The record is a 79-nucleotide RNA from Microtus ochrogaster, which matches "mir-3473 microRNA precursor family" in Rfam. Rfam links the family to the GO terms miRNA-mediated post-transcriptional gene silencing, RISC complex and cellular response to mechanical stimulus. It scores 72 bits against the family's covariance model.
[Rfam]
RNA sequence: ACCACUGAGCCAUCUCUCCAGCCCCAGAUGCUGUAAUUAAAAACUAUAAAAUAGGGGGCUGGAGAGAUGGCUCAGAGGU
Numbered sequence: 001a002c003c004a005c006u007g008a009g010c011c012a013u014c015u016c017u018c019c020a021g022c023c024c025c026a027g028a029u030g031c032u033g034u035a036a037u038u039a040a041a042a043a044c045u046a047u048a049a050a051a052u053a054g055g056g057g058g059c060u061g062g063a064g065a066g067a068u069g070g071c072u073c074a075g076a077g078g079u
Stems, first nucleotide, its partner, number of pairs: 002078002005075020